RNA sequence: ACCCCCCGGUUCCCUUUCCUAUCGGAUCUGAACCCCAGUCUUGGUGGUCAUAAAAGGAGGGAAAGUAAUACUGAAGCUGGCCUCAAAGCUCUGUAGCAUGUGGGCUAGUUUCAAACAAGG
Numbered sequence: 001a002c003c004c005c006c007c008g009g010u011u012c013c014c015u016u017u018c019c020u021a022u023c024g025g026a027u028c029u030g031a032a033c034c035c036c037a038g039u040c041u042u043g044g045u046g047g048u049c050a051u052a053a054a055a056g057g058a059g060g061g062a063a064a065g066u067a068a069u070a071c072u073g074a075a076g077c078u079g080g081c082c083u084c085a086a087a088g089c090u091c092u093g094u095a096g097c098a099u100g101u102g103g104g105c106u107a108g109u110u111u112c113a114a115a116c117a118a119g120g
Stems, first nucleotide, its partner, number of pairs: 003060002006057002019047005025040003077108007092098002
Small nucleolar RNA SNORA61: a 120-nucleotide RNA sequence from Phyllostomus discolor. By type it is an H/ACA-box small nucleolar RNA. Lineage of the source: Eukaryota > Bilateria > Sarcopterygii > Eutheria > Phyllostomus. Its family is annotated with RNA processing and nucleolus in the Gene Ontology. ACA61 is a member of the H/ACA class of snoRNA that guide the sites of modification of uridines to pseudouridines.